[Rfam]
RNA: Repression of heat shock gene expression (ROSE) element
RNA sequence: GCGGUCGCUCAUCGAGGCCCGCCAUCCCUUCGAGAAAGUCUCGAAGGCGUUGUAACCAUGUUGCUUCAAGGAGGAUAUGGCUAUGGCAA
Numbered sequence: 001g002c003g004g005u006c007g008c009u010c011a012u013c014g015a016g017g018c019c020c021g022c023c024a025u026c027c028c029u030u031c032g033a034g035a036a037a038g039u040c041u042c043g044a045a046g047g048c049g050u051u052g053u054a055a056c057c058a059u060g061u062u063g064c065u066u067c068a069a070g071g072a073g074g075a076u077a078u079g080g081c082u083a084u085g086g087c088a089a
Base pairs, nucleotide, nucleotide: 001022002021003020004019006017008016009015027047028046029045030044031043032042033041034040049087050086051085052084053083054082056080057079058078059077060076061075062074064073065072066071
Dot-bracket structure: ((((.(.((.....))).))))....((((((((.....)))))))).((((((.(((((((.(((....)))))))))).))))))..